Rfam assigns this 77-nucleotide RNA sequence from Ceratitis capitata to the family "mir-310 microRNA precursor family". Pairs were carried over by alignment from the consensus structure, which was predicted with RNAalifold. The family has 23 seed sequences and 60 matches in Rfam 15.1. A search with the family's covariance model found it, with a score of 54 bits. Rfam links the family to the GO terms segmentation, cellular response to nitric oxide and head involution.
RNA sequence: AAAUUUUUCGGUCGUGCAUUGUUGCAAUCCGUUUUCUUGUUAUAUUUCGUAUUGCACAAUUCCCGGCCUGAAAAUUA
Number, nucleotide and partner (000 for none) at each position: 001a000002a076003a075004u074005u073006u072007u071008u000009c000010g068011g067012u000013c065014g064015u000016g062017c000018a000019u000020u058021g057022u000023u000024g000025c054026a053027a052028u051029c000030c049031g048032u000033u000034u000035u000036c000037u000038u000039g000040u000041u000042a000043u000044a000045u000046u000047u000048c031049g030050u000051a028052u027053u026054g025055c000056a000057c021058a020059a000060u000061u000062c016063c000064c014065g013066g000067c011068c010069u000070g000071a007072a006073a005074a004075u003076u002077a000